[Rfam]
RNA sequence: CCACCACAGUUAUCUGGGGAGGUCACUCUCCCUGGGCUCUGGGCUCUGGGCAGGUGGCCUAAGGGAGCACAGGCUCUGCCCCGUGAUGGAAAUGAAGACUGGCCUUUUGACUCUGGGCCUGCAUAUUCCUAUGACUUCUCAGAGUCCAGUGGACAAUGACUGAGGAAACAAAUCAUACAGGAAACAAUG
Numbered sequence: 001c002c003a004c005c006a007c008a009g010u011u012a013u014c015u016g017g018g019g020a021g022g023u024c025a026c027u028c029u030c031c032c033u034g035g036g037c038u039c040u041g042g043g044c045u046c047u048g049g050g051c052a053g054g055u056g057g058c059c060u061a062a063g064g065g066a067g068c069a070c071a072g073g074c075u076c077u078g079c080c081c082c083g084u085g086a087u088g089g090a091a092a093u094g095a096a097g098a099c100u101g102g103c104c105u106u107u108u109g110a111c112u113c114u115g116g117g118c119c120u121g122c123a124u125a126u127u128c129c130u131a132u133g134a135c136u137u138c139u140c141a142g143a144g145u146c147c148a149g150u151g152g153a154c155a156a157u158g159a160c161u162g163a164g165g166a167a168a169c170a171a172a173u174c175a176u177a178c179a180g181g182a183a184a185c186a187a188u189g
Base pairs, nucleotide, nucleotide: 001089002088003087005085006084007083008045009044010043011041012040014036015035018029019028020027021026048081049080050079051078057074058073059072060071118181119180120179121178123176124175136166137165138164139163140162144154145153146152147151

This 189-nucleotide sequence from Jaculus jaculus belongs to the Rfam family "Small nucleolar RNA SNORA73 family". U17 (SNORA73A and SNORA73B) also known as E1 belongs to the H/ACA class of small nucleolar RNAs (snoRNAs). Vertebrate U17 is intron-encoded and ranges in length from 200-230 nucleotides, longer than most snoRNAs. It is one of the most abundant snoRNAs in human cells and is essential for the cleavage of pre-rRNA within the 5' external transcribed spacer (ETS). This cleavage leads to the formation of 18S rRNA. Regions of the U17 RNA are complementary to rRNA and act as guides for RNA/RNA interactions, although these regions do not seem to be well conserved between organisms. The organism belongs to Jaculus, within Eukaryota. Pairs were carried over by alignment from the consensus structure, which is taken from published work. On this family, see Enright et al., RNA 1996: "5'ETS rRNA processing facilitated by four small RNAs: U14, E3, U17, and U3". The family has 66 seed sequences and 2,326 matches in Rfam 15.1.